The family of this 162-nucleotide RNA from Solirubrobacter ginsenosidimutans is "c-di-AMP riboswitch aptamer (ydaO/yuaA leader)". It scores 71 bits against the family's covariance model. Taxonomically the source falls in Solirubrobacter (Bacteria, Bacillati, Solirubrobacterales, Solirubrobacteraceae).
RNA sequence: CCGUCAUAAGAGCCGAGUUCCGUCUGGUCUGUCCGGACGGGAGCGGGGGAACCGAUGGAGCCUUGGUCAGGCUCCCGGGGCGAAUCGCCGUCAUGACGACGGCGUAGCGCAGGUCUACGCGCGAGCCCGUCAGCUAACCCCGUAGGCGGAUUGAGACCAAGG
Numbered sequence: 001c002c003g004u005c006a007u008a009a010g011a012g013c014c015g016a017g018u019u020c021c022g023u024c025u026g027g028u029c030u031g032u033c034c035g036g037a038c039g040g041g042a043g044c045g046g047g048g049g050a051a052c053c054g055a056u057g058g059a060g061c062c063u064u065g066g067u068c069a070g071g072c073u074c075c076c077g078g079g080g081c082g083a084a085u086c087g088c089c090g091u092c093a094u095g096a097c098g099a100c101g102g103c104g105u106a107g108c109g110c111a112g113g114u115c116u117a118c119g120c121g122c123g124a125g126c127c128c129g130u131c132a133g134c135u136a137a138c139c140c141c142g143u144a145g146g147c148g149g150a151u152u153g154a155g156a157c158c159a160a161g162g
Stems, first nucleotide, its partner, number of pairs: 012147003018042009043143006053077002078128003086104004107122004